A member of the RNA family "Archaeal large subunit ribosomal RNA" from Halohasta litchfieldiae, 449 nucleotides of a longer RNA.
RNA sequence: CCGACCGAAACAUGUCGAAGCAUGACCUCAAUCGAGAUAGUUCGUGAGGUAGAGCGACCGAUUACAAAUCCCGCCUCCGAGAGGAGUCGGCUUUGUUGUCAAACUCCGAACUUACGAACGUUGUAGACAUUGGGAGUCCGGUGUGCGGGGUAAUCUUGUGCACCGUAAGGGAGACAACCCAGAGCUAGGUUAAGGACCCCAAAUAUGGAUUAAGUGCGAUCGAAGGUGGUCUCGAGCCCUAAACAGCCGGGAGGUGAGCUUAGAAGCAGCAACCCUCUAAGAAAAGCGUAACAGCUUACCGGCCGAGGUUCGAGGCGCCCAAAAUGAUCGGGGCUCAAAUCCAUUUCCGAGACCCAGCAGCAUCCCGUUAGGGAUGACCACGUAGGUCGGCGUUCUGAUCGGGUGGAAGCUCGGGCGAGAGCUCGCGUGGACCGUUCAGAAACGAAAAU
Numbered sequence: 001c002c003g004a005c006c007g008a009a010a011c012a013u014g015u016c017g018a019a020g021c022a023u024g025a026c027c028u029c030a031a032u033c034g035a036g037a038u039a040g041u042u043c044g045u046g047a048g049g050u051a052g053a054g055c056g057a058c059c060g061a062u063u064a065c066a067a068a069u070c071c072c073g074c075c076u077c078c079g080a081g082a083g084g085a086g087u088c089g090g091c092u093u094u095g096u097u098g099u100c101a102a103a104c105u106c107c108g109a110a111c112u113u114a115c116g117a118a119c120g121u122u123g124u125a126g127a128c129a130u131u132g133g134g135a136g137u138c139c140g141g142u143g144u145g146c147g148g149g150g151u152a153a154u155c156u157u158g159u160g161c162a163c164c165g166u167a168a169g170g171g172a173g174a175c176a177a178c179c180c181a182g183a184g185c186u187a188g189g190u191u192a193a194g195g196a197c198c199c200c201a202a203a204u205a206u207g208g209a210u211u212a213a214g215u216g217c218g219a220u221c222g223a224a225g226g227u228g229g230u231c232u233c234g235a236g237c238c239c240u241a242a243a244c245a246g247c248c249g250g251g252a253g254g255u256g257a258g259c260u261u262a263g264a265a266g267c268a269g270c271a272a273c274c275c276u277c278u279a280a281g282a283a284a285a286g287c288g289u290a291a292c293a294g295c296u297u298a299c300c301g302g303c304c305g306a307g308g309u310u311c312g313a314g315g316c317g318c319c320c321a322a323a324a325u326g327a328u329c330g331g332g333g334c335u336c337a338a339a340u341c342c343a344u345u346u347c348c349g350a351g352a353c354c355c356a357g358c359a360g361c362a363u364c365c366c367g368u369u370a371g372g373g374a375u376g377a378c379c380a381c382g383u384a385g386g387u388c389g390g391c392g393u394u395c396u397g398a399u400c401g402g403g404u405g406g407a408a409g410c411u412c413g414g415g416c417g418a419g420a421g422c423u424c425g426c427g428u429g430g431a432c433c434g435u436u437c438a439g440a441a442a443c444g445a446a447a448a449u
Stems, first nucleotide, its partner, number of pairs: 001390006011024005026136001027134006036122003040119008052107001053105002060100003064096005073088001075086004140164009169180003184358003188354003194348003203345001205344006225319003229316010246303005252276003258270002277281001282297001286295002360379001361376005391444001393441006400434003409428002412425005